[Rfam]
RNA sequence: CUUUAUAGAGCCUGCAUUGUACACACUGUGUGCGUAACUAAGACCUGCACAGCGCAUACAAUGUGGAUGCUAUAUGA
Numbered sequence: 001c002u003u004u005a006u007a008g009a010g011c012c013u014g015c016a017u018u019g020u021a022c023a024c025a026c027u028g029u030g031u032g033c034g035u036a037a038c039u040a041a042g043a044c045c046u047g048c049a050c051a052g053c054g055c056a057u058a059c060a061a062u063g064u065g066g067a068u069g070c071u072a073u074a075u076g077a
Base pairs, nucleotide, nucleotide: 012066013065015063016062017061018060019059020058021057024054026052027051028050029049030048031047

A member of the RNA family "mir-460 microRNA precursor family" from Hymenochirus boettgeri, 77 nucleotides long.